[Rfam]
RNA: HDV ribozyme from F. prausnitzii
RNA sequence: UCCGCUCGAAACUUUGCACACCUCUACGCGGUGGGCGGCAGGCAACACAGUGUGUAGAUGCUGUGGCAAAGAAUGCAAGA
Numbered sequence: 001u002c003c004g005c006u007c008g009a010a011a012c013u014u015u016g017c018a019c020a021c022c023u024c025u026a027c028g029c030g031g032u033g034g035g036c037g038g039c040a041g042g043c044a045a046c047a048c049a050g051u052g053u054g055u056a057g058a059u060g061c062u063g064u065g066g067c068a069a070a071g072a073a074u075g076c077a078a079g080a
Base pairs, nucleotide, nucleotide: 002038003037004036005035006034007033020032021031022030046065047064048063049062050061051060052059053058